This 143-nucleotide sequence from Heyndrickxia oleronia belongs to the Rfam family "FMN riboswitch aptamer (RFN element)". Pairs were carried over by alignment from the consensus structure, which is taken from published work.
[Rfam]
RNA sequence: AUUCAUCUUCGGGGCAGGGUGAAAAUCCCGACCGGCGGUAAUAAAGCUCAUACAUGCUUUUAGCCCGCGAGCCUUAGAAUAAUAAGGCAGGAUUUGGUGUGAUUCCAAAGCCGACAGUACAGUCUGGAUGGGAGAAGAUGGAG
Dot-bracket structure: ..((((((((......(((.......))).[[((((((........................[[))))..(((............)))....(((((.......)))))]])).(((....]]))).......))))))))..